[Rfam]
Nucleotides: 492
Stems, first nucleotide, its partner, number of pairs: 001432006011024001013022003028166006043122007055110001056108002062104003067099001069097003074094006081087001124150001126148007173197004178192005202213003217395005227385003236382001238381001241378003262356003266353010283340005289313003295307002314318001319334001323332002396422009433487001435484010451471002457466003
Number, partner (000 for none) and nucleotide at each position: 001432c002431c003430c004429u005428c006427c007000g008000a009000a010000a011024u012000u013022u014021c015020c016000c017000u018000u019000a020015g021014g022013a023000u024011a025000g026000c027000u028166g029165c030164g031163a032162u033161c034000g035000a036000u037000u038000g039000u040000c041000a042000a043122u044121u045120u046119u047118a048117u049116c050000a051000g052000g053000u054000a055110a056108a057107g058000c059000g060000a061000a062104u063103g064102a065000u066000u067099a068000g069097a070096g071095g072000u073000u074094c075093c076092g077091g078090g079089a080000g081087c082000g083000u084000a085000a086000u087081g088000c089079u090078c091077u092076c093075g094074g095071c096070c097069u098000a099067u100000u101000c102064u103063c104062a105000a106000a107057c108056u109000u110055u111000a112000a113000a114000u115000g116049g117048g118047u119046a120045a121044g122043a123000a124150c125000u126148c127147g128146g129145g130144g131143u132142u133000g134000c135000u136000u137000a138000a139000u140000u141000g142132a143131a144130c145129c146128c147127u148126g149000c150124g151000g152000u153000u154000g155000a156000a157000u158000g159000a160000c161033g162032g163031u164030c165029g166028c167000u168000a169000g170000u171000g172000g173197g174196c175195c176194a177000c178192a179191c180190c181189g182188g183000g184000u185000a186000a187000g188182c189181u190180g191179g192178u193000u194176u195175g196174g197173c198000g199000a200000u201000g202213c203212g204211g205000g206000a207000u208000g209000a210000u211204c212203c213202g214000a215000a216000c217395g218394u219393g220392g221391a222000g223000a224000u225000a226000a227385a228384g229383u230000g231000c232000c233000a234000a235000a236382g237000u238381g239000c240000u241378c242377g243376c244000u245000c246000a247000c248000c249000u250000a251000g252000a253000u254000c255000c256000c257000a258000c259000a260000a261000a262356a263355g264354g265000u266353g267352u268351u269350g270349g271348u272347u273346c274345a275344u276000a277000u278000a279000g280000a281000c282000a283340g284339c285338a286337g287336g288000a289313c290312g291311g292000u293000g294000g295307c296306c297000a298000c299000g300000g301000a302000a303000g304000u305000c306296g307295g308000a309000a310000u311291c312290c313289g314318c315000u316000a317000a318314g319334g320000a321000g322000u323332g324331u325000g326000u327000a328000a329000c330000a331324a332323c333000u334319c335000a336287c337286c338285u339284g340283c341000c342000g343000a344275a345274u346273g347272a348271a349270c350269u351268a352267g353266c354264c355263c356262u357000g358000a359000a360000a361000a362000u363000g364000g365000a366000u367000g368000g369000c370000g371000c372000u373000g374000a375000a376243g377242c378241g379000g380000g381238c382236c383229a384228c385227u386000u387000a388000u389000a390000c391221u392220c393219c394218a395217c396422c397421a398420c399419u400418g401417g402416c403415g404414c405000a406000a407000g408000u409000g410000u411000u412000u413000g414404g415403u416402g417401c418400c419399a420398g421397u422396g423000a424000g425000u426000a427006g428005g429004a430003g431002g432001g433487c434000g435484u436483g437482a438481a439480g440479g441478u442477u443476g444475u445000u446000g447000u448000g449000c450000a451471g452470c453000u454000c455000g456000u457466g458465g459464c460000g461000u462000g463000a464459g465458c466457c467000a468000g469000a470452g471451u472000g473000a474000a475444a476443c477442g478441g479440c480439c481438u482437u483436u484435a485000g486000u487433g488000c489000a490000g491000a492000u
The family of this 492-nucleotide part of an RNA from Phaeodactylum tricornutum is "Eukaryotic large subunit ribosomal RNA". The organism belongs to Phaeodactylum tricornutum, within Eukaryota. The family's consensus secondary structure is taken from published work. Rfam's curators put it in the seed alignment.